[Rfam]
RNA sequence: CUUCCCAUUUAUUUGCUGGUAUAAUGAUACAAUGAUAUGAGCAGUUAUACUCUUUGGAAAAAAUAAUAUUGGGCCAUUGUAAAUUGACAUGAAGUAAGUAUUUUCAUAUCAUCUGCAAUGGACUAGAUGUUG
Numbered sequence: 001c002u003u004c005c006c007a008u009u010u011a012u013u014u015g016c017u018g019g020u021a022u023a024a025u026g027a028u029a030c031a032a033u034g035a036u037a038u039g040a041g042c043a044g045u046u047a048u049a050c051u052c053u054u055u056g057g058a059a060a061a062a063a064u065a066a067u068a069u070u071g072g073g074c075c076a077u078u079g080u081a082a083a084u085u086g087a088c089a090u091g092a093a094g095u096a097a098g099u100a101u102u103u104u105c106a107u108a109u110c111a112u113c114u115g116c117a118a119u120g121g122a123c124u125a126g127a128u129g130u131u132g
Base pairs, nucleotide, nucleotide: 003058004057005056007054015045016044017043018042020040022037023036025035069126070125071124072123074121075120076119078117079116080115081114086110087109089107090106091104092103093102094101095100
Background: Small nucleolar RNA SNORA20: a 132-nucleotide RNA. Clan: SNORA20 clan. ACA20 is a member of the H/ACA class of snoRNA that guide the sites of modification of uridines to pseudouridines.